[Rfam]
RNA sequence: ACUCGGGCACGACCCGCGCUGUCAUGUGUGGGACCGACCCGAUGUGAUCAACCUAAGGGA
Number, nucleotide and partner (000 for none) at each position: 001a045002c044003u000004c041005g040006g039007g038008c000009a000010c000011g000012a000013c032014c031015c030016g029017c028018g027019c026020u000021g000022u000023c000024a000025u000026g019027u018028g017029u016030g015031g014032g013033a000034c000035c000036g000037a000038c007039c006040c005041g004042a000043u000044g002045u001046g000047a000048u000049c000050a000051a000052c000053c000054u000055a000056a000057g000058g000059g000060a000
About this RNA: The record is a 60-nucleotide RNA from Corynebacterium urealyticum, which matches "L31-Corynebacteriaceae ribosomal protein leader" in Rfam. The source organism's lineage runs through Bacteria, Bacillati, Actinomycetes, Corynebacterium and Corynebacterium urealyticum. For this family Rfam cites "Discovery of 20 novel ribosomal leader candidates in bacteria and archaea" (Eckert and Weinberg, BMC Microbiol, 2020). It is annotated as a cis-regulatory leader.